This 94-nucleotide sequence from Drosophila kikkawai belongs to the Rfam family "mir-986 microRNA precursor family". Taxonomically the source falls in Sophophora (Eukaryota, Muscomorpha, Acalyptratae, Drosophilidae). The base pairs follow the family's consensus structure, which was predicted with RNAalifold.
RNA sequence: UCCGGAACGACCCAUCUCGAAUAGCGUUGUGACUGAGGUAACUGCGAUUCAAACUGACUCAGAGGCAGCGCUAUUCCAGUGAGGUCGUUCUGGG
Numbered sequence: 001u002c003c004g005g006a007a008c009g010a011c012c013c014a015u016c017u018c019g020a021a022u023a024g025c026g027u028u029g030u031g032a033c034u035g036a037g038g039u040a041a042c043u044g045c046g047a048u049u050c051a052a053a054c055u056g057a058c059u060c061a062g063a064g065g066c067a068g069c070g071c072u073a074u075u076c077c078a079g080u081g082a083g084g085u086c087g088u089u090c091u092g093g094g
Stems, first nucleotide, its partner, number of pairs: 001094008010085003016079002019076007027068004033062005